[Rfam]
RNA sequence: CGGGUAGUAUCCCUUUGAGGAACUACACCUGUUAGACGUAUUUCGUGUUCGAAACAAGCAGCUGCAUUUAACAGACAAUCUAAUAUGAUUUAUUUUCCGCUUGGAGCCGGGUGGACCGAGACGGGAGG
Numbered sequence: 001c002g003g004g005u006a007g008u009a010u011c012c013c014u015u016u017g018a019g020g021a022a023c024u025a026c027a028c029c030u031g032u033u034a035g036a037c038g039u040a041u042u043u044c045g046u047g048u049u050c051g052a053a054a055c056a057a058g059c060a061g062c063u064g065c066a067u068u069u070a071a072c073a074g075a076c077a078a079u080c081u082a083a084u085a086u087g088a089u090u091u092a093u094u095u096u097c098c099g100c101u102u103g104g105a106g107c108c109g110g111g112u113g114g115a116c117c118g119a120g121a122c123g124g125g126a127g128g
Stems, first nucleotide, its partner, number of pairs: 002029002004026005010021002097124003100120005107114002